[Rfam]
RNA: c-di-GMP-I riboswitch aptamer
RNA sequence: AAUGGAUAAUGGCAAACCCUAGCGAAAGCAGGGGACGCAAAGCCACGGGUCUAAUGCAUGCACGCAUGCGAUGAUAGCCGGGUUGCCCUA
Numbered sequence: 001a002a003u004g005g006a007u008a009a010u011g012g013c014a015a016a017c018c019c020u021a022g023c024g025a026a027a028g029c030a031g032g033g034g035a036c037g038c039a040a041a042g043c044c045a046c047g048g049g050u051c052u053a054a055u056g057c058a059u060g061c062a063c064g065c066a067u068g069c070g071a072u073g074a075u076a077g078c079c080g081g082g083u084u085g086c087c088c089u090a
Stems, first nucleotide, its partner, number of pairs: 012038002017033004022029002041084004046080003049075003056069004